The record is a 91-nucleotide sequence from Geomonas silvestris, which matches "atoC RNA" in Rfam.
The family's RNA type in Rfam is cis-regulatory element.
The base pairs follow the family's consensus structure, which is taken from published work.
Lineage of the source: Bacteria > Pseudomonadati > Desulfuromonadia > Geobacterales > Geomonas.
The match comes from Rfam's covariance-model search (74 bits).
[Rfam]
RNA sequence: GCUAUAAUAAAAUCAAAGUUUAGAGUUGCGGAGGAUCGUCGGAUCCUCCUUCCCCUAGCUGACUUGCCCUCCUAGUCGCUAGGGUUUUUUU
Numbered sequence: 001g002c003u004a005u006a007a008u009a010a011a012a013u014c015a016a017a018g019u020u021u022a023g024a025g026u027u028g029c030g031g032a033g034g035a036u037c038g039u040c041g042g043a044u045c046c047u048c049c050u051u052c053c054c055c056u057a058g059c060u061g062a063c064u065u066g067c068c069c070u071c072c073u074a075g076u077c078g079c080u081a082g083g084g085u086u087u088u089u090u091u
Stems, first nucleotide, its partner, number of pairs: 031048007053084006060078005